Annotation
The family of this 71-nucleotide sequence from Clostridium fallax is "tRNA". From the family's description: Transfer RNA (tRNA) molecules are approximately 80 nucleotides in length. Their secondary structure includes four short double-helical elements and three loops (D, anti-codon, and T loops). Gene Ontology term of the family: triplet codon-amino acid adaptor activity.
RNA sequence: GCGGGUGUAGCUCAAUGGUAGAGCCCUAGCCUUCCAAGCUAGUUACGUGGGUUCGAUUCCCAUCACCCGCU
Dot-bracket structure: (((((((..((((.......)))).(((((.......)))))....(((((.......)))))))))))).